[Rfam]
RNA: Small nucleolar RNA Z122
RNA sequence: CUGGGGAAUGAUGAUAAAGAUAUCGAUAUUUCAUAGGCAUAUGCCAAUGCUGAACCAAAAUAUUUGCACGUCAGUCUGACCCCCAG
Dot-bracket structure: ((((((.........................................................................)).))))